[Rfam]
RNA sequence: AUGACAUGAUGAUGAAGUUUAUCCAUUCUCUGAGUGCCUCUGCUCUGCUUCUCCUGCAGCAUGUGGAUUCCUGUUCUAGGUUUCUUCAUGUUCCUCAGCCUCUGAAAGCCCUUGGCAUAGUGUUCUACUGUGCUCCAUUGGUAUUAGGAGAGCCUGUAUGCAGAGUUAACAGGGCAGGCAUGGGUUGAAGUCCUGAUUACAAGGCUUCAUCUCAGCAAAGAUGAAUGCGUGAAUCUGAUCAU
Numbered sequence: 001a002u003g004a005c006a007u008g009a010u011g012a013u014g015a016a017g018u019u020u021a022u023c024c025a026u027u028c029u030c031u032g033a034g035u036g037c038c039u040c041u042g043c044u045c046u047g048c049u050u051c052u053c054c055u056g057c058a059g060c061a062u063g064u065g066g067a068u069u070c071c072u073g074u075u076c077u078a079g080g081u082u083u084c085u086u087c088a089u090g091u092u093c094c095u096c097a098g099c100c101u102c103u104g105a106a107a108g109c110c111c112u113u114g115g116c117a118u119a120g121u122g123u124u125c126u127a128c129u130g131u132g133c134u135c136c137a138u139u140g141g142u143a144u145u146a147g148g149a150g151a152g153c154c155u156g157u158a159u160g161c162a163g164a165g166u167u168a169a170c171a172g173g174g175c176a177g178g179c180a181u182g183g184g185u186u187g188a189a190g191u192c193c194u195g196a197u198u199a200c201a202a203g204g205c206u207u208c209a210u211c212u213c214a215g216c217a218a219a220g221a222u223g224a225a226u227g228c229g230u231g232a233a234u235c236u237g238a239u240c241a242u
Stems, first nucleotide, its partner, number of pairs: 010241004017234004024227005030220002034216002040178002043174005049168001051165003055162004060090004065085003070080003096156003100152002108142003113137001115133008182213003186209004191204002
The family of this 242-nucleotide RNA from Geotrypetes seraphini is "Small nucleolar RNA SNORD17".
For this family Rfam cites "RNomics: an experimental approach that identifies 201 candidates for novel, small, non-messenger RNAs in mouse" (Huttenhofer et al., EMBO J, 2001).
The snoRNA HBI-43 belongs to the C/D family of snoRNAs, guiding 2'O-ribose methylation at position U3797 of the 28S rRNA. Pseudouridylation in position U3797 is predicted to be guided by the H/ACA snoRNA ACA48.
The match comes from Rfam's covariance-model search (88 bits).
The base pairs follow the family's consensus structure, which was predicted with RNAalifold.
The family's RNA type in Rfam is C/D-box small nucleolar RNA.